[Rfam]
Acido-Lenti-1 RNA: a 46-nucleotide RNA sequence from a Pirellulaceae bacterium.
RNA sequence: CUGUGGGCUUACGCCCACGGCUACUAACUGUCGCUCCUUCGGAGCU
Numbered sequence: 001c002u003g004u005g006g007g008c009u010u011a012c013g014c015c016c017a018c019g020g021c022u023a024c025u026a027a028c029u030g031u032c033g034c035u036c037c038u039u040c041g042g043a044g045c046u
Base pairs, nucleotide, nucleotide: 001020002019003018004017005016006015007014008013033045034044035043036042037041

Overview
Rfam classes the family as a small RNA. Pairs were carried over by alignment from the consensus structure, which is taken from published work.